[Rfam]
RNA sequence: GUGGGAGGGAAGGGAGUUCCUCAGCCCAGAUUUCGAGAGGGUGCAGGCCAGGCCGAGGGACCCCACCAGUGCCCA
Numbered sequence: 001g002u003g004g005g006a007g008g009g010a011a012g013g014g015a016g017u018u019c020c021u022c023a024g025c026c027c028a029g030a031u032u033u034c035g036a037g038a039g040g041g042u043g044c045a046g047g048c049c050a051g052g053c054c055g056a057g058g059g060a061c062c063c064c065a066c067c068a069g070u071g072c073c074c075a
Stems, first nucleotide, its partner, number of pairs: 003073002006070001009067001013064002016061007024053003029048001031046002034043002
RNA: mir-9193 microRNA precursor family